The record is a 195-nucleotide sequence, which matches "manA RNA" in Rfam. From the family's description: manA RNA has been located in 5'UTR regions of genes of mannose or fructose metabolism. Has been proposed as a cis-regulatory element and as a riboswitch candidate for his complex secondary structure.
RNA sequence: CGACGGUCACCUUGCAGGGAGUGACUGAAUAAUCUUUCUGGCAUAUAGCUGGAUAAGGUGAUGAGAUACAGGUGGUGCUGCUGUGGUUUUCCACAGAACCGACAAACCAGUCGGAUCUCAGGCAAGGAUGUAAAAUUUACUACUGUAGUAAUGCCCGUCCUUUGUUGGUAAUACAGAAACCCAACCUCCCACUUU
Numbered sequence: 001c002g003a004c005g006g007u008c009a010c011c012u013u014g015c016a017g018g019g020a021g022u023g024a025c026u027g028a029a030u031a032a033u034c035u036u037u038c039u040g041g042c043a044u045a046u047a048g049c050u051g052g053a054u055a056a057g058g059u060g061a062u063g064a065g066a067u068a069c070a071g072g073u074g075g076u077g078c079u080g081c082u083g084u085g086g087u088u089u090u091c092c093a094c095a096g097a098a099c100c101g102a103c104a105a106a107c108c109a110g111u112c113g114g115a116u117c118u119c120a121g122g123c124a125a126g127g128a129u130g131u132a133a134a135a136u137u138u139a140c141u142a143c144u145g146u147a148g149u150a151a152u153g154c155c156c157g158u159c160c161u162u163u164g165u166u167g168g169u170a171a172u173a174c175a176g177a178a179a180c181c182c183a184a185c186c187u188c189c190c191a192c193u194u195u
Base pairs, nucleotide, nucleotide: 001014002013003012005010017190018189019188020187021186024059025058037053038052039051040050041049042048062120063119064118065117066116067115069080070079071078073109074108075107076106081096082095083094084093085092086091099114100113101112102111103110124162125161126160127159128158129157130156137151138150139149140148143176144175145174146173164185165184166183167182168181